The record is a 53-nucleotide sequence from Quercus lobata, which matches "Plastid-atpF group II-D1 intron" in Rfam.
RNA sequence: UCCUUUUUGAUCGAUAUAUAACACUCAUGUCGAUAAAAUGAUUUGAACCCUUU
Numbered sequence: 001u002c003c004u005u006u007u008u009g010a011u012c013g014a015u016a017u018a019u020a021a022c023a024c025u026c027a028u029g030u031c032g033a034u035a036a037a038a039u040g041a042u043u044u045g046a047a048c049c050c051u052u053u
Stems, first nucleotide, its partner, number of pairs: 011033007
Rfam links the family to the GO term Group II intron splicing. On this family, see Richter et al., Plant Commun 2023: "Retrograde signaling in plants: A critical review focusing on the GUN pathway and beyond". Rfam's curators write: Plastid atpF is a non-coding RNA (ncRNA) recognised in plastids. It has been reported in the intron group II-D1 region of ATP synthase (atpF) genes.